A member of the RNA family "Bacterial RNase P class A" from Lysobacteraceae bacterium NML03-0222, 342 nucleotides long.
[Rfam]
RNA sequence: GGAGUCGGCCAGACAGUCGCGGCACCUUUGCGGUGUCGAGGAAAGUCCGGGCUCCACAGGGUGCGAUGCCAGGUAACGCCUGGGCGGCGUGAGCCGACGGAAAGUGCAACAGAAAGAUACCGCCACGCCCUCGGGCGCGGUAAGGGUGAAAUGGUGCGGUAAGAGCGCACCGCGAGUGGGGCAACCCACCGGCACGGCAAACCCCAUCGGGAGCAAGACCAAAUAGGGUGCCAUGGCGUGACCCGCGUCGGCACCGGGUAGGUUGCUGGAGCCUGUCAGUGAUGGCAGGCCAAGAAGAAUGACUGUCCACGACAGAACCCGGCUUAUCGGCCGGCUCCGCCA
Dot-bracket structure: ((((((((((((((((((.(((((((.....)))))))....[[[.[[[[[((((...[[[[.((((((((((.....)))))(((((....)))).)((...((((............(((((.((((....)))).)))..)).......((((((.......))))))(((.(((((....))))))).)...))..)))))))))))))...((((......((((((..(((((.]]]]))))))))))).....))))......((((((((....))))))))..........)))))))..........]]]]]]]].).))))))))))....
It is annotated as a ribozyme. A search with the family's covariance model found it, with a score of 321 bits. The organism belongs to Lysobacteraceae, within Bacteria.